This 117-nucleotide RNA sequence from Acer saccharum belongs to the Rfam family "Small nucleolar RNA snoR104". For this family Rfam cites "Experimental RNomics: identification of 140 candidates for small non-messenger RNAs in the plant Arabidopsis thaliana" (Marker et al., Curr Biol, 2002).

RNA sequence: GGGGAACAUCCAAAAGCCGAGAUGUUAUCUGAUACAAUCUUCCUACAGAAAACUCUGUACUUUCCUGCUUGUAGUGCUUGAGCAAGUUCUGCGAGUCUCAUAUCUCCAGAGACAUGA
Numbered sequence: 001g002g003g004g005a006a007c008a009u010c011c012a013a014a015a016g017c018c019g020a021g022a023u024g025u026u027a028u029c030u031g032a033u034a035c036a037a038u039c040u041u042c043c044u045a046c047a048g049a050a051a052a053c054u055c056u057g058u059a060c061u062u063u064c065c066u067g068c069u070u071g072u073a074g075u076g077c078u079u080g081a082g083c084a085a086g087u088u089c090u091g092c093g094a095g096u097c098u099c100a101u102a103u104c105u106c107c108a109g110a111g112a113c114a115u116g117a
Base pairs, nucleotide, nucleotide: 001030002029003028005026006025007024008023009022010021054110055109056108067096068095069094070093071092072091073090074089076087077086078085
A search with the family's covariance model found it, with a score of 111 bits.
By type it is an H/ACA-box small nucleolar RNA.
Taxonomically the source falls in Acer (Eukaryota, Streptophytina, malvids, Sapindaceae).